[Rfam]
Shown here is a 98-nucleotide RNA from Streptomyces tateyamensis, a member of the family "che1 RNA".
RNA sequence: AGGGCAGGGGGGUGUCCGCGUCCCACCGCGGUUCCUGUCCUUCGUCCGGUCGCGCGGCCCCGCGUGAUCGUUUGGUUGUCGCUCGGGGGUGAUCGCCG
Dot-bracket structure: ((((((((.....(.(((((......))))).)))))))))......((((((((......)))))))).............................
Numbered sequence: 001a002g003g004g005c006a007g008g009g010g011g012g013u014g015u016c017c018g019c020g021u022c023c024c025a026c027c028g029c030g031g032u033u034c035c036u037g038u039c040c041u042u043c044g045u046c047c048g049g050u051c052g053c054g055c056g057g058c059c060c061c062g063c064g065u066g067a068u069c070g071u072u073u074g075g076u077u078g079u080c081g082c083u084c085g086g087g088g089g090u091g092a093u094c095g096c097c098g
Stems, first nucleotide, its partner, number of pairs: 001041008014033001016031005048069008

The organism belongs to Streptomyces, within Bacteria.